Guanidine-II riboswitch aptamer (mini-ykkC): a 43-nucleotide RNA from Gammaproteobacteria bacterium ESL0073. Lineage of the source: Bacteria > Pseudomonadati > Pseudomonadota > Gammaproteobacteria. Simpler in structure and has fewer highly conserved nucleotide positions than the ykkC-yxkD leader. The match comes from Rfam's covariance-model search (35 bits). Pairs were carried over by alignment from the consensus structure, which is taken from published work.

[Rfam]
RNA sequence: AAGAGGACGACCUCUUGUUUCCCAAUCACUCAGGACGACCUGA
Numbered sequence: 001a002a003g004a005g006g007a008c009g010a011c012c013u014c015u016u017g018u019u020u021c022c023c024a025a026u027c028a029c030u031c032a033g034g035a036c037g038a039c040c041u042g043a
Stems, first nucleotide, its partner, number of pairs: 001016006030043005